[Rfam]
RNA: mir-8/mir-141/mir-200 microRNA precursor family
Organism: Pomacea canaliculata
RNA sequence: GGGUUCAUCUUACCUAACAGCAUUAGAUGUGUGUCAGCAUUUUCUAAUACUGUCAGGUAAAGAUGUCCAC
Numbered sequence: 001g002g003g004u005u006c007a008u009c010u011u012a013c014c015u016a017a018c019a020g021c022a023u024u025a026g027a028u029g030u031g032u033g034u035c036a037g038c039a040u041u042u043u044c045u046a047a048u049a050c051u052g053u054c055a056g057g058u059a060a061a062g063a064u065g066u067c068c069a070c
Stems, first nucleotide, its partner, number of pairs: 003068001006065004010060006017053004022048006